RNA sequence: ACACGUUGAAAUCGGGUUUCGCAAACAGCGGUCUGUAUUUAAUGCUAUUUGACAUUAGUUCGUUGUCGACGAAACCUGCAUAUAACGUGA
Numbered sequence: 001a002c003a004c005g006u007u008g009a010a011a012u013c014g015g016g017u018u019u020c021g022c023a024a025a026c027a028g029c030g031g032u033c034u035g036u037a038u039u040u041a042a043u044g045c046u047a048u049u050u051g052a053c054a055u056u057a058g059u060u061c062g063u064u065g066u067c068g069a070c071g072a073a074a075c076c077u078g079c080a081u082a083u084a085a086c087g088u089g090a
Base pairs, nucleotide, nucleotide: 002089003088004087005086006085013078014077015076016075017074018073019072020071021070030061031060033058034057